Small nucleolar RNA U109: a 126-nucleotide sequence from Cricetulus griseus. The family's RNA type in Rfam is H/ACA-box small nucleolar RNA. The organism belongs to Cricetulus, within Eukaryota. The base pairs follow the family's consensus structure, which was predicted with WAR. Gene Ontology terms of the family: RNA processing and nucleolus. The literature on the family includes a 2005 paper in Nucleic Acids Res by Gu et al., "A novel experimental approach for systematic identification of box H/ACA snoRNAs from eukaryotes".
RNA sequence: UUGCAUGUCCACCCCUCUUUUCUUGGGCGUAGGAAUGUAUCCAUAACAUGCUACAUUGAUCAAGGAGUUCUCAGGGCUACCAACCUUACAGUAGAGGUUGAGUAGUAGUAUAUUUCUCCUACAUUA
Numbered sequence: 001u002u003g004c005a006u007g008u009c010c011a012c013c014c015c016u017c018u019u020u021u022c023u024u025g026g027g028c029g030u031a032g033g034a035a036u037g038u039a040u041c042c043a044u045a046a047c048a049u050g051c052u053a054c055a056u057u058g059a060u061c062a063a064g065g066a067g068u069u070c071u072c073a074g075g076g077c078u079a080c081c082a083a084c085c086u087u088a089c090a091g092u093a094g095a096g097g098u099u100g101a102g103u104a105g106u107a108g109u110a111u112a113u114u115u116c117u118c119c120u121a122c123a124u125u126a
Stems, first nucleotide, its partner, number of pairs: 001046001008033002011030002014027002064119004076106002080102001081100007

The match comes from Rfam's covariance-model search (124 bits).